[Rfam]
RNA: glmS glucosamine-6-phosphate activated ribozyme aptamer
Organism: Gorillibacterium sp.
RNA sequence: UUAAUCAUACAAGCGCCAGAACUUGAACGGAGCGGACAGUUUCAGUCACCCAGGUUGUGAUACUGGGCUUUAACGACCGAAACACGUUCAAGUUGACGAGGUGAAGGUGUUCGAAUUUUUCGGCGGGGGCCUUCCGGUAUUCUGCAAUCGAAAGUCAGUUAACAAAACGUCGCGGGCGACCGGGCGGACAAAAUUCUGACGGCAGUCGGA
Numbered sequence: 001u002u003a004a005u006c007a008u009a010c011a012a013g014c015g016c017c018a019g020a021a022c023u024u025g026a027a028c029g030g031a032g033c034g035g036a037c038a039g040u041u042u043c044a045g046u047c048a049c050c051c052a053g054g055u056u057g058u059g060a061u062a063c064u065g066g067g068c069u070u071u072a073a074c075g076a077c078c079g080a081a082a083c084a085c086g087u088u089c090a091a092g093u094u095g096a097c098g099a100g101g102u103g104a105a106g107g108u109g110u111u112c113g114a115a116u117u118u119u120u121c122g123g124c125g126g127g128g129g130c131c132u133u134c135c136g137g138u139a140u141u142c143u144g145c146a147a148u149c150g151a152a153a154g155u156c157a158g159u160u161a162a163c164a165a166a167a168c169g170u171c172g173c174g175g176g177c178g179a180c181c182g183g184g185c186g187g188a189c190a191a192a193a194u195u196c197u198g199a200c201g202g203c204a205g206u207c208g209g210a
Stems, first nucleotide, its partner, number of pairs: 020094008029085001103134005111123004135150004154200005168186004173182003